The family of this 62-nucleotide RNA sequence from Erwinia billingiae is "DnaX ribosomal frameshifting element".
Rfam classes the family as a frameshift element.
A reference for the family is Larsen et al. (1997), "Structural probing and mutagenic analysis of the stem-loop required for Escherichia coli dnaX ribosomal frameshifting: programmed efficiency of 50%", J Mol Biol.
Rfam's curators write: This family represents a ribosomal frameshifting element found in the mRNA of the dnaX gene in E. coli. The dnaX gene has two encoded products tau and gamma which are produced in a 1:1 ratio. The gamma protein is synthesised due to programmed frameshifting and is shorter than tau. The two products of the dnaX gene are DNA polymerase III subunits.
RNA sequence: AACAGGGAGCGACCAAACCAAAAAAGGAUGAGCCGGCAGCGCAACGUGCGCGGCCGGCAAGU
Numbered sequence: 001a002a003c004a005g006g007g008a009g010c011g012a013c014c015a016a017a018c019c020a021a022a023a024a025a026g027g028a029u030g031a032g033c034c035g036g037c038a039g040c041g042c043a044a045c046g047u048g049c050g051c052g053g054c055c056g057g058c059a060a061g062u
Stems, first nucleotide, its partner, number of pairs: 032058006039051004